Shown here is a 377-nucleotide RNA, a member of the family "Pestivirus internal ribosome entry site (IRES) including 5'UTR SLI".
On this family, see Kolupaeva et al., RNA 2000: "Ribosomal binding to the internal ribosomal entry site of classical swine fever virus".
It is one of the family's seed sequences.
From the family's description: This family represents the internal ribosome entry site (IRES) of the the pestiviruses.
RNA sequence: GUAUACGAGAUUAGCUCAUACUCGUGUACAAAUUGGACGUAGCAAAUUUAAAAAUUCGGAUAGGGUCCCCAUCCAGCGACGGCCGAACGGGGUUAACCAUACCUCUAGUAGGACUAGCAGACGGAUGGACUAGCCACAGUGGUGAGCUCCCUGGGAGGUCUAAGUUCUGAGUACAGAACAGUCGUCAGUAGUUCAACGCUGGUAAACCCCAGCCUUGAGAUGCUACGUGGACGAGGGCAUGCCCAAGACACACCUUAACCUGGACGGGGGUCGUCCAGGUGAAAGUACCCAUCUUUGGGUGCUGGGAGUACAGCCUGAUAGGGCGCUGCAGAGGCCCACUGACAGGCUAGUAUAAAAAUCUCUGCUGUACAUGGAAC
Numbered sequence: 001g002u003a004u005a006c007g008a009g010a011u012u013a014g015c016u017c018a019u020a021c022u023c024g025u026g027u028a029c030a031a032a033u034u035g036g037a038c039g040u041a042g043c044a045a046a047u048u049u050a051a052a053a054a055u056u057c058g059g060a061u062a063g064g065g066u067c068c069c070c071a072u073c074c075a076g077c078g079a080c081g082g083c084c085g086a087a088c089g090g091g092g093u094u095a096a097c098c099a100u101a102c103c104u105c106u107a108g109u110a111g112g113a114c115u116a117g118c119a120g121a122c123g124g125a126u127g128g129a130c131u132a133g134c135c136a137c138a139g140u141g142g143u144g145a146g147c148u149c150c151c152u153g154g155g156a157g158g159u160c161u162a163a164g165u166u167c168u169g170a171g172u173a174c175a176g177a178a179c180a181g182u183c184g185u186c187a188g189u190a191g192u193u194c195a196a197c198g199c200u201g202g203u204a205a206a207c208c209c210c211a212g213c214c215u216u217g218a219g220a221u222g223c224u225a226c227g228u229g230g231a232c233g234a235g236g237g238c239a240u241g242c243c244c245a246a247g248a249c250a251c252a253c254c255u256u257a258a259c260c261u262g263g264a265c266g267g268g269g270g271u272c273g274u275c276c277a278g279g280u281g282a283a284a285g286u287a288c289c290c291a292u293c294u295u296u297g298g299g300u301g302c303u304g305g306g307a308g309u310a311c312a313g314c315c316u317g318a319u320a321g322g323g324c325g326c327u328g329c330a331g332a333g334g335c336c337c338a339c340u341g342a343c344a345g346g347c348u349a350g351u352a353u354a355a356a357a358a359u360c361u362c363u364g365c366u367g368u369a370c371a372u373g374g375a376a377c
Stems, first nucleotide, its partner, number of pairs: 001029009069128006076118002081115002083112002089105005129351007137341006143312002146309006153255003157251001158249004164179006182234005188226005193218004198213005235244003258280010286301006313324004326367001328365006